About this RNA:
The family of this 120-nucleotide RNA from Candidatus Atribacteria bacterium MT.SAG.1 is "THF (Tetrahydrofolate) riboswitch aptamer". About the family: Tetrahydrofolate (THF) riboswitch was first reported for Ames et al. as an RNA motif in 5' untranslated (5'-UTR)regions of folate transport and biosynthesis genes in Firmicutes genomes. On this family, see Trausch and Batey, Chem Biol 2014: "A disconnect between high-affinity binding and efficient regulation by antifolates and purines in the tetrahydrofolate riboswitch". Gene Ontology term of the family: tetrahydrofolate metabolic process. The match comes from Rfam's covariance-model search (67 bits). Taxonomically the source falls in Atribacterota (Bacteria, Pseudomonadati).
[Rfam]
RNA sequence: GCUAGAGUAGGUGACCUGCGUUAAGUGUUAGAGAAUGGGACGUUGUCUCUAAACGAAAGACUUAAAGAUAUUUAAUAUGAAUAACUCCAAGGUCUGCGGUAGGUCAUCGCGUCCGCUGCU
Numbered sequence: 001g002c003u004a005g006a007g008u009a010g011g012u013g014a015c016c017u018g019c020g021u022u023a024a025g026u027g028u029u030a031g032a033g034a035a036u037g038g039g040a041c042g043u044u045g046u047c048u049c050u051a052a053a054c055g056a057a058a059g060a061c062u063u064a065a066a067g068a069u070a071u072u073u074a075a076u077a078u079g080a081a082u083a084a085c086u087c088c089a090a091g092g093u094c095u096g097c098g099g100u101a102g103g104u105c106a107u108c109g110c111g112u113c114c115g116c117u118g119c120u
Stems, first nucleotide, its partner, number of pairs: 001120001003118003010108009019098003025054002028052007038114005058095006